[Rfam]
RNA sequence: UAUUGAUAAAGGCAAAUCCAUCGAAAGAUGGCGACGCAAAGCUACAGGGGCUACAGCGGUUCAUCCGCAAUGCCAGCCAGUUACCGAU
Numbered sequence: 001u002a003u004u005g006a007u008a009a010a011g012g013c014a015a016a017u018c019c020a021u022c023g024a025a026a027g028a029u030g031g032c033g034a035c036g037c038a039a040a041g042c043u044a045c046a047g048g049g050g051c052u053a054c055a056g057c058g059g060u061u062c063a064u065c066c067g068c069a070a071u072g073c074c075a076g077c078c079a080g081u082u083a084c085c086g087a088u
Base pairs, nucleotide, nucleotide: 012037013036018031019030020029021028022027040082041081042080043079047078048077049074050073051072056068057067058066059065
The family of this 88-nucleotide RNA sequence from Paenibacillus apis is "c-di-GMP-I riboswitch aptamer". GEMM was predicted in a large-scale screen for bacterial structured RNA regulatory elements. A search with the family's covariance model found it, with a score of 79 bits.